Rfam assigns this 150-nucleotide RNA from Shimwellia blattae to the family "Glm Y RNA activator of glmS mRNA". A reference for the family is Rivas et al. (2001), "Computational identification of noncoding RNAs in E. coli by comparative genomics", Curr Biol. From the family's description: This family consists of a number of bacterial RNA genes of around 167 bases in length. The tke1 RNA gene is present in Escherichia coli, Shigella flexneri, Yersinia pestis and Salmonella species where it is found between the yfhK and purL genes. The function of this RNA is unknown. A search with the family's covariance model found it, with a score of 124 bits.
RNA sequence: AGUGGCUCAUUCACCCAAUUAUGUCAGCCCCGGAUCUUCCGGCUGUUGCUACAUAAAACACCGAAUGACGCACUCAAAGGUGCCUGCCGUCCAGCUUCUGAUAAGCGAUUUAUCAGCCAUCGGGCGAAACGUUGAGUAAGGCACCGCCUG
Number, nucleotide and partner (000 for none) at each position: 001a000002g000003u000004g000005g071006c070007u068008c067009a066010u065011u064012c063013a000014c000015c000016c000017a000018a000019u056020u055021a054022u053023g052024u051025c000026a050027g049028c048029c000030c000031c000032g000033g000034a000035u000036c000037u000038u000039c000040c000041g000042g000043c000044u000045g000046u000047u000048g028049c027050u026051a024052c023053a022054u021055a020056a019057a000058a000059c000060a000061c000062c000063g012064a011065a010066u009067g008068a007069c000070g006071c005072a000073c000074u000075c000076a000077a000078a000079g145080g144081u143082g142083c141084c140085u139086g000087c000088c126089g125090u124091c123092c122093a000094g000095c000096u000097u000098c000099u115100g114101a113102u112103a111104a110105g000106c000107g000108a000109u000110u104111u103112a102113u101114c100115a099116g000117c000118c000119a000120u000121c000122g092123g091124g090125c089126g088127a000128a000129a137130c136131g000132u000133u000134g000135a000136g130137u129138a000139a085140g084141g083142c082143a081144c080145c079146g000147c000148c000149u000150g000